The family of this 105-nucleotide RNA sequence is "cow-rumen-2 RNA". The family's RNA type in Rfam is small RNA.
[Rfam]
Nucleotides: 105
Stems, first nucleotide, its partner, number of pairs: 002077001007027007040102001041100002043097002045092007059081003064076001068075002
Number, partner (000 for none) and nucleotide at each position: 001000a002077g003000c004000g005000a006000u007027g008026u009025a010024u011023a012022g013021g014000u015000c016000a017000g018000c019000a020000g021013c022012c023011u024010a025009u026008a027007c028000g029000g030000a031000u032000a033000g034000c035000c036000g037000c038000c039000a040102u041100g042099g043097c044096u045092u046091g047090g048089c049088a050087u051086g052000a053000u054000g055000u056000a057000g058000c059081c060080g061079a062000a063000g064076u065000a066000c067000a068075g069074g070000a071000u072000g073000a074069c075068c076064g077002c078000c079061u080060c081059g082000u083000a084000a085000g086051c087050a088049u089048g090047c091046c092045a093000g094000u095000a096044a097043g098000c099042c100041c101000c102040a103000a104000g105000a